Source information
The record is a 131-nucleotide RNA sequence from Celeribacter indicus, which matches "TPP riboswitch aptamer (THI element)" in Rfam. It scores 55 bits against the family's covariance model. NCBI's taxonomy places the organism under Bacteria, Pseudomonadati, Alphaproteobacteria, Rhodobacterales, Celeribacter.

[Rfam]
RNA sequence: GCAACACGUCAGGGGAGUCCCGCCGAAGGGACUGAGAGGCUGAUAUCCGCCGGGGAGAUCCGGUGGAGGUGAUGCGACCCUUAGAACCUGACCCAGUUGAUGCUGGCGUAGGAAGACCGAAGGGCAUUUCC
Number, nucleotide and partner (000 for none) at each position: 001g000002c000003a000004a000005c000006a000007c000008g117009u116010c115011a081012g080013g079014g078015g000016a000017g032018u031019c030020c029021c028022g000023c000024c000025g000026a000027a000028g021029g020030g019031a018032c017033u000034g000035a000036g000037a000038g000039g075040c074041u000042g000043a000044u000045a000046u000047c000048c000049g000050c000051c000052g000053g000054g000055g000056a000057g000058a000059u000060c000061c000062g000063g000064u000065g000066g000067a000068g000069g000070u000071g000072a000073u000074g040075c039076g000077a000078c014079c013080c012081u011082u000083a000084g000085a000086a000087c112088c111089u110090g109091a000092c000093c106094c105095a104096g103097u000098u000099g000100a000101u000102g000103c096104u095105g094106g093107c000108g000109u090110a089111g088112g087113a000114a000115g010116a009117c008118c000119g000120a000121a000122g000123g000124g000125c000126a000127u000128u000129u000130c000131c000